[Rfam]
RNA sequence: AGCGAUAAAGGCAAACCAGUCGAAAGGCUGGGACGCAAAGCCAAGGGUCUUACCUUUUUAAAGGAAGAUAGCCGGUUACCGAAG
Numbered sequence: 001a002g003c004g005a006u007a008a009a010g011g012c013a014a015a016c017c018a019g020u021c022g023a024a025a026g027g028c029u030g031g032g033a034c035g036c037a038a039a040g041c042c043a044a045g046g047g048u049c050u051u052a053c054c055u056u057u058u059u060a061a062a063g064g065a066a067g068a069u070a071g072c073c074g075g076u077u078a079c080c081g082a083a084g
Stems, first nucleotide, its partner, number of pairs: 003081002011036002016031006034071001039077004045073002047069005
Source information:
c-di-GMP-I-GGC riboswitch aptamer: an 84-nucleotide RNA from Alkalibacter saccharofermentans.